Background
The record is a 78-nucleotide sequence from Candidatus Moduliflexus flocculans, which matches "c-di-GMP-I-GGC riboswitch aptamer" in Rfam. The match comes from Rfam's covariance-model search (62 bits). Pairs were carried over by alignment from the consensus structure, which is taken from published work. The family is grouped with related families in Rfam's "c-di-GMP_I riboswitch clan".

[Rfam]
RNA sequence: UCAGAAAAAGCCAAACCUAUCGUAAGAUAGGGGCAGAAAGCUGCGGGUCCGCGACAGCGGAUAGCCGGGUUGCCUGAA
Numbered sequence: 001u002c003a004g005a006a007a008a009a010g011c012c013a014a015a016c017c018u019a020u021c022g023u024a025a026g027a028u029a030g031g032g033g034c035a036g037a038a039a040g041c042u043g044c045g046g047g048u049c050c051g052c053g054a055c056a057g058c059g060g061a062u063a064g065c066c067g068g069g070u071u072g073c074c075u076g077a078a
Base pairs, nucleotide, nucleotide: 001078003075004074011036016031017030018029019028020027021026034064039071040070041069042068044067045066046065047062048061049060